[Rfam]
RNA sequence: GACUCCGGUCGCACCUGCGCCCCCUAUGAACUACUCACUGGGAGGAAAGCACCCCACCAAGCCCCUCCCCUCCCUCCCGCCGGGCACAGUCACUCCCGCGAGUGAAUAUGCCAACUUGGCUGGAUUCGGGGCCGGUUGUCUGCCCUACGCUCAGCGGCGACACAACCACCAGACAUGCGACGGCCCCCGCCGGGAGUGGGAUCCCAAUGCGGGGGCCUGGCCACCAAGGAAGAAGAAGCUUCCCG
Numbered sequence: 001g002a003c004u005c006c007g008g009u010c011g012c013a014c015c016u017g018c019g020c021c022c023c024c025u026a027u028g029a030a031c032u033a034c035u036c037a038c039u040g041g042g043a044g045g046a047a048a049g050c051a052c053c054c055c056a057c058c059a060a061g062c063c064c065c066u067c068c069c070c071u072c073c074c075u076c077c078c079g080c081c082g083g084g085c086a087c088a089g090u091c092a093c094u095c096c097c098g099c100g101a102g103u104g105a106a107u108a109u110g111c112c113a114a115c116u117u118g119g120c121u122g123g124a125u126u127c128g129g130g131g132c133c134g135g136u137u138g139u140c141u142g143c144c145c146u147a148c149g150c151u152c153a154g155c156g157g158c159g160a161c162a163c164a165a166c167c168a169c170c171a172g173a174c175a176u177g178c179g180a181c182g183g184c185c186c187c188c189g190c191c192g193g194g195a196g197u198g199g200g201a202u203c204c205c206a207a208u209g210c211g212g213g214g215g216c217c218u219g220g221c222c223a224c225c226a227a228g229g230a231a232g233a234a235g236a237a238g239c240u241u242c243c244c245g
Stems, first nucleotide, its partner, number of pairs: 007225003017076001019074001090105006119155005182217005188211003192205004228243005
The family of this 245-nucleotide sequence is "Streptomyces sRNA 4677". Located in the intergenic region between anti-sigma factor SCO4677 gene and a putative regulatory protein gene SCO4676. scr4677 expression requires the SCO4677 activity and scr4677 sRNA itself seem to affect the levels of the SCO4676-associated transcripts. Rfam classes the family as a small RNA. The literature on the family includes a 2014 paper in PLoS One by Hindra et al., "Complex intra-operonic dynamics mediated by a small RNA in Streptomyces coelicolor". A search with the family's covariance model found it, with a score of 175 bits. Pairs were carried over by alignment from the consensus structure.